Glycine riboswitch aptamer: an 89-nucleotide sequence from Marinactinospora thermotolerans. The match comes from Rfam's covariance-model search (74 bits). The base pairs follow the family's consensus structure.
RNA sequence: UGAUACCACACGGGAGAGACCCCUCCACGGGGCGCCGACGGGGCAACACUCCCCAGUAACCUCUCAGGCAAAAGGACCGUGUGGAGAGG
Numbered sequence: 001u002g003a004u005a006c007c008a009c010a011c012g013g014g015a016g017a018g019a020c021c022c023c024u025c026c027a028c029g030g031g032g033c034g035c036c037g038a039c040g041g042g043g044c045a046a047c048a049c050u051c052c053c054c055a056g057u058a059a060c061c062u063c064u065c066a067g068g069c070a071a072a073a074g075g076a077c078c079g080u081g082u083g084g085a086g087a088g089g
Stems, first nucleotide, its partner, number of pairs: 006084008020032004034069003037065002041063003047056001